[Rfam]
RNA sequence: AGUGGCUCAUUCAAUUUUUUAUGUCAGCGUCUUUUCAGACAGACUACAUAAACCCCCGAAUGACGCACAAAAAGGUGCCUGCCGUCCAACUUUUGAUAAAUGCCUUUGGGCUUAUCAUGCUCCGGACGAAACGUUGAGUAAGGCGCCGCCUA
Numbered sequence: 001a002g003u004g005g006c007u008c009a010u011u012c013a014a015u016u017u018u019u020u021a022u023g024u025c026a027g028c029g030u031c032u033u034u035u036c037a038g039a040c041a042g043a044c045u046a047c048a049u050a051a052a053c054c055c056c057c058g059a060a061u062g063a064c065g066c067a068c069a070a071a072a073a074g075g076u077g078c079c080u081g082c083c084g085u086c087c088a089a090c091u092u093u094u095g096a097u098a099a100a101u102g103c104c105u106u107u108g109g110g111c112u113u114a115u116c117a118u119g120c121u122c123c124g125g126a127c128g129a130a131a132c133g134u135u136g137a138g139u140a141a142g143g144c145g146c147c148g149c150c151u152a
Stems, first nucleotide, its partner, number of pairs: 005066002007063006019051006026045002074147007083128005094117006131139002